[Rfam]
RNA sequence: UGAAUUUAUUUUAAAUAACACACACAUAUCGACACAUGCGUGCGGGGUGCCUGCAAAGCGGGUCGCAACAUGGGAUAUGUGGAGGCCUAAC
Numbered sequence: 001u002g003a004a005u006u007u008a009u010u011u012u013a014a015a016u017a018a019c020a021c022a023c024a025c026a027u028a029u030c031g032a033c034a035c036a037u038g039c040g041u042g043c044g045g046g047g048u049g050c051c052u053g054c055a056a057a058g059c060g061g062g063u064c065g066c067a068a069c070a071u072g073g074g075a076u077a078u079g080u081g082g083a084g085g086c087c088u089a090a091c
Stems, first nucleotide, its partner, number of pairs: 023081008035072004041067004049063005
Annotation:
Shown here is a 91-nucleotide sequence from Aliidiomarina sanyensis, a member of the family "t44 RNA". Rfam's curators write: This family consists of a number of bacterial RNA genes of between 135 and 170 bases in length. Rfam classes the family as a small RNA. The match comes from Rfam's covariance-model search (80 bits).